[Rfam]
RNA sequence: UAAACUGGACUCAUAACCGCUCGUAUAAAACCGGGGAUAGGGCCCGGAAGUUUCUACCCGGGAACCGUAAAUUUCCGGACUACGAGGAAGACAGAAGCCGUU
Numbered sequence: 001u002a003a004a005c006u007g008g009a010c011u012c013a014u015a016a017c018c019g020c021u022c023g024u025a026u027a028a029a030a031c032c033g034g035g036g037a038u039a040g041g042g043c044c045c046g047g048a049a050g051u052u053u054c055u056a057c058c059c060g061g062g063a064a065c066c067g068u069a070a071a072u073u074u075c076c077g078g079a080c081u082a083c084g085a086g087g088a089a090g091a092c093a094g095a096a097g098c099c100g101u102u
Stems, first nucleotide, its partner, number of pairs: 020086006031047005058078007
Purine riboswitch aptamer: a 102-nucleotide sequence from Paenibacillus spiritus. The match comes from Rfam's covariance-model search (77 bits). Taxonomically the source falls in Paenibacillus (Bacteria, Bacilli, Caryophanales, Paenibacillaceae).